Record summary
The family of this 361-nucleotide part of an RNA from Clostridium sp. 'deep sea' is "Bacterial large subunit ribosomal RNA". Its Rfam clan is "LSU clan".

RNA sequence: CAGGAGAACCCCUGUUAAGGAACUCGGCAAAAUGACUCCGUAACUUCGGGAGAAGGAGUGCUCUAAUAUUGUGAAGUUCCUUGCGAAUGGAGCAAGAAAGAGUUGCAGAUGAGAGGCUCAAGCGACUGUUUACCAAAAACACAGGUCUCUGCUAAAGCGAAAGCUGAAGUAUAGGGGCUGACGCCUGCCCGGUGCUGGAAGGUUAAGGGGAAGUGUUAGCGUAAGCGAAGCACAGAACUGAAGCCCCAGUGAACGGCGGCCGUAACUAUAACGGUCCUAAGGUAGCGAAAUUCCUUGUCGGGUAAGUUCCGACCCGCACGAAAGGCGUAACGGUUUGAGCGCUGUCUCAACAGGGGGCCUG
Number, nucleotide and partner (000 for none) at each position: 001c361002a360003g359004g358005a000006g000007a000008a000009c356010c355011c354012c353013u352014g351015u350016u349017a000018a347019g346020g345021a000022a000023c000024u000025c000026g000027g000028c000029a000030a000031a000032a000033u000034g000035a059036c058037u057038c056039c055040g000041u000042a000043a000044c049045u000046u000047c000048g000049g044050g000051a000052g000053a000054a000055g039056g038057a037058g036059u035060g103061c102062u101063c100064u099065a000066a000067u000068a000069u000070u000071g000072u000073g000074a000075a000076g000077u000078u091079c090080c089081u000082u087083g000084c000085g000086a000087a082088u000089g080090g079091a078092g000093c000094a000095a000096g000097a000098a000099a064100g063101a062102g061103u060104u108105g000106c000107a000108g104109a000110u000111g000112a000113g000114a000115g000116g340117c339118u338119c337120a336121a335122g334123c332124g331125a000126c000127u141128g140129u139130u000131u000132a000133c000134c000135a000136a000137a000138a000139a129140c128141a127142c000143a000144g179145g178146u177147c176148u175149c174150u173151g172152c169153u000154a000155a000156a165157g164158c163159g000160a000161a000162a000163g158164c157165u156166g000167a000168a000169g152170u000171a000172u151173a150174g149175g148176g147177g146178c145179u144180g000181a000182c327183g326184c325185c324186u000187g257188c256189c255190c000191g000192g254193u253194g250195c249196u248197g247198g246199a000200a000201g245202g244203u243204u000205a000206a000207g239208g238209g000210g000211a000212a000213g233214u232215g231216u230217u000218a000219g226220c225221g000222u000223a000224a000225g220226c219227g000228a000229a000230g216231c215232a214233c213234a000235g000236a000237a000238c208239u207240g000241a000242a000243g203244c202245c201246c198247c197248a196249g195250u194251g000252a000253a193254c192255g189256g188257c187258g276259g275260c274261c273262g272263u271264a000265a000266c000267u000268a000269u000270a000271a263272c262273g261274g260275u259276c258277c281278u000279a000280a000281g277282g000283u000284a000285g000286c000287g314288a000289a000290a000291u000292u000293c000294c000295u000296u000297g313298u312299c311300g310301g309302g308303u000304a000305a000306g000307u000308u302309c301310c300311g299312a298313c297314c287315c000316g000317c000318a000319c000320g000321a000322a000323a000324g185325g184326c183327g182328u000329a000330a000331c124332g123333g000334u122335u121336u120337g119338a118339g117340c116341g000342c000343u000344g000345u020346c019347u018348c000349a016350a015351c014352a013353g012354g011355g010356g009357g000358c004359c003360u002361g001
The match comes from Rfam's covariance-model search (2818 bits). The family's consensus secondary structure is taken from published work.